Rfam assigns this 72-nucleotide RNA from Fukomys damarensis to the family "tRNA". NCBI's taxonomy places the organism under Eukaryota, Metazoa, Deuterostomia, Bathyergidae, Fukomys.
[Rfam]
RNA sequence: GAGGGAGUGGUUCAGUGGCAGAGCAUGGGCUCAGCACGCCCAAGGCCCUGGGUUCAAUUCCCAGCACUUUCC
Numbered sequence: 001g002a003g004g005g006a007g008u009g010g011u012u013c014a015g016u017g018g019c020a021g022a023g024c025a026u027g028g029g030c031u032c033a034g035c036a037c038g039c040c041c042a043a044g045g046c047c048c049u050g051g052g053u054u055c056a057a058u059u060c061c062c063a064g065c066a067c068u069u070u071c072c
Base pairs, nucleotide, nucleotide: 001071002070003069004068005067007065010024011023012022013021026042027041028040029039030038048064049063050062051061052060